The record is a 592-nucleotide part of an RNA from Borreliella burgdorferi, which matches "Bacterial large subunit ribosomal RNA" in Rfam. Lineage of the source: Bacteria > Spirochaetota > Spirochaetia > Spirochaetales > Borreliella burgdorferi.
RNA sequence: UAAUAAGAGUCUAUGGUGAAUGCCUAGGAGCUUUAAGGCGAAGAAGGUCGUGGUAAGCUGCGAAAAGCUUGGGGGAGAAGCAAACAUUUAUUGAUCCCAAGAUUACCGAAUGGAGUAAUCCAGCUAGCAAGAUGCUAGCUAUCUAUUAUUUAAAUAAUAGAGGCGAUACCAGGGGAAGUGAACCAUCUAAGUACCCUGAGGAAAAGAAAUCAAAGAGAUUCCCUUAGUAGUGGCGAGCGAAAAGGGAGUAGCCCAAACUUUAAAUGUGUCAAGCUGCAGAGCGUUGCAUUUAUGGGGUUGUAGGACGUUUAGGCUUAGUCUGUAAUAAGCAAAAAAGUUACAAAAUAUUUAUAUAGAAGAAUAAUCUGGAAAGUUUAACCAAAGAAGGUGAUAGUCCUGUAAUUUAAAUGUAAAUAUCUUUUUAAAAUGUUCCUGAGUAGGACGAGGCACGAGAAACCUUGUUUGAAGCUGGGGAGACCACUCUCCAAGGCUAAAUACUAGAAAGCUACCGAUAGAGAAGAGUACCGUGAGGGAAAGGUGAAAAGAACCCCGGGAGGGGAGUGAAAUAGAACUGAAACCGUAGACUUACAAG
Dot-bracket structure: ......((((((((((.....(((..((((((((.((((......((((((........))).....(((((((..(((.......))).....)))))))...)))....(((....)))(((((((.....))))))).((((((((....)))))))).))....((((((.....((....))......))))).).........((...))..((((((.....((.....))....)))))..((((....((.((((((((................)))))))).))......(((...(((...............................((.((((((((((.((....(((.(......).)))..(...).(((.......)))....))...)))))))))).))...))).....))).....((((((((.........))))))))......(((((......)))))..))))..)..))..)))))).))..............((....))....)).........((((....))))............).....)))))))))).....
On this family, see Yusupov et al., Science 2001: "Crystal structure of the ribosome at 5.5 A resolution".